[Rfam]
RNA sequence: GGCUGGUCUGAUAGUAGUGGGUUAUCAGAAUUGAACAUUAGUGUCACUAACAUUAAUGGUAUACAAUCUCCCACUGCUAAAUUUGAUUGACUUUUU
Numbered sequence: 001g002g003c004u005g006g007u008c009u010g011a012u013a014g015u016a017g018u019g020g021g022u023u024a025u026c027a028g029a030a031u032u033g034a035a036c037a038u039u040a041g042u043g044u045c046a047c048u049a050a051c052a053u054u055a056a057u058g059g060u061a062u063a064c065a066a067u068c069u070c071c072c073a074c075u076g077c078u079a080a081a082u083u084u085g086a087u088u089g090a091c092u093u094u095u096u
Stems, first nucleotide, its partner, number of pairs: 001092002004089005010084002015079001016075006026058002030054001

About this RNA:
The family of this 96-nucleotide RNA from Piliocolobus tephrosceles is "Y RNA". About the family: Y RNAs are components of the Ro ribonucleoprotein particle (Ro RNP), in association with Ro60 and La proteins. The Y RNAs and Ro60 and La proteins are well conserved, but the function of the Ro RNP is not known. In humans the RNA component can be one of four small RNAs -- hY1, hY3, hY4 and hY5. These small RNAs are predicted to fold into a conserved secondary structure containing three stem structures. The base pairs follow the family's consensus structure, which is taken from published work. Lineage of the source: Eukaryota > Opisthokonta > Chordata > Primates > Piliocolobus. By type it is a non-coding RNA gene.